[Rfam]
RNA sequence: GCAGUUAAAAAGCUCGUAGUUGAAACUUGGGAUUGGAAGUCUGGUCCACCUCACGGUGCGUACUGGAACUUUUGAUUCUUUUUGCCUGGACGUCUGUUGCGUUUAACCGCGUGGCAGAAAGGUCAGGCCAUUUACUGUGAGAAAAUUAGAGUGUUCAAAGCAGGCGUUUCGCUCGAAUAUAUUAGCAUGGAAUAAUAGAAUAGGACGUAUGGUUCUAUUUUGUUGGUUUCUAGGACCGUCGUAAUGAUUAAUAGGGACAGUCGGGGGCAUCAGUAUUCAAUAGUCAGAGGUGAAAUUCUUGGAUUUAUUGAAGACUAACUAUUGCGAAAGCAUUUGCCAAGGAUGUUUUCAUUAAUCAAGAACGAAAGUUAGGGGAUCGAAGACGAUUAGAUACCGUCGUAGUCUUAACCGUAAACUAUGCCGACUAGGGAUCGGACGGGUAGUUAUUUUAGCUCGUUCGGCACCUCGUGAGAAAUCAAAGUUUUUAGGUUCUGGGGGGAGUAUGGUCGCAAGGCUGAAACUUAAAGGAAU
Numbered sequence: 001g002c003a004g005u006u007a008a009a010a011a012g013c014u015c016g017u018a019g020u021u022g023a024a025a026c027u028u029g030g031g032a033u034u035g036g037a038a039g040u041c042u043g044g045u046c047c048a049c050c051u052c053a054c055g056g057u058g059c060g061u062a063c064u065g066g067a068a069c070u071u072u073u074g075a076u077u078c079u080u081u082u083u084g085c086c087u088g089g090a091c092g093u094c095u096g097u098u099g100c101g102u103u104u105a106a107c108c109g110c111g112u113g114g115c116a117g118a119a120a121g122g123u124c125a126g127g128c129c130a131u132u133u134a135c136u137g138u139g140a141g142a143a144a145a146u147u148a149g150a151g152u153g154u155u156c157a158a159a160g161c162a163g164g165c166g167u168u169u170c171g172c173u174c175g176a177a178u179a180u181a182u183u184a185g186c187a188u189g190g191a192a193u194a195a196u197a198g199a200a201u202a203g204g205a206c207g208u209a210u211g212g213u214u215c216u217a218u219u220u221u222g223u224u225g226g227u228u229u230c231u232a233g234g235a236c237c238g239u240c241g242u243a244a245u246g247a248u249u250a251a252u253a254g255g256g257a258c259a260g261u262c263g264g265g266g267g268c269a270u271c272a273g274u275a276u277u278c279a280a281u282a283g284u285c286a287g288a289g290g291u292g293a294a295a296u297u298c299u300u301g302g303a304u305u306u307a308u309u310g311a312a313g314a315c316u317a318a319c320u321a322u323u324g325c326g327a328a329a330g331c332a333u334u335u336g337c338c339a340a341g342g343a344u345g346u347u348u349u350c351a352u353u354a355a356u357c358a359a360g361a362a363c364g365a366a367a368g369u370u371a372g373g374g375g376a377u378c379g380a381a382g383a384c385g386a387u388u389a390g391a392u393a394c395c396g397u398c399g400u401a402g403u404c405u406u407a408a409c410c411g412u413a414a415a416c417u418a419u420g421c422c423g424a425c426u427a428g429g430g431a432u433c434g435g436a437c438g439g440g441u442a443g444u445u446a447u448u449u450u451a452g453c454u455c456g457u458u459c460g461g462c463a464c465c466u467c468g469u470g471a472g473a474a475a476u477c478a479a480a481g482u483u484u485u486u487a488g489g490u491u492c493u494g495g496g497g498g499g500a501g502u503a504u505g506g507u508c509g510c511a512a513g514g515c516u517g518a519a520a521c522u523u524a525a526a527g528g529a530a531u
Base pairs, nucleotide, nucleotide: 002494003493004492010491012363014361015360019356020355021354254350255349256348257347258345259344261342262341266338267337268336269335272316273315276312277311278310279309280308281307282306283305287298288297289296324331325330368409369408370407371406372405373404378402382398383397384396385395420490421489422488423483424482425481427466428465429464432461433460434459435458436457437456438455439454440453441452470477471476496523497522498521505516506515507514508513
The record is a 531-nucleotide part of an RNA from Wickerhamiella sorbophila, which matches "Eukaryotic small subunit ribosomal RNA" in Rfam. The match comes from Rfam's covariance-model search (1784 bits). Gene Ontology terms of the family: ribosome and structural constituent of ribosome.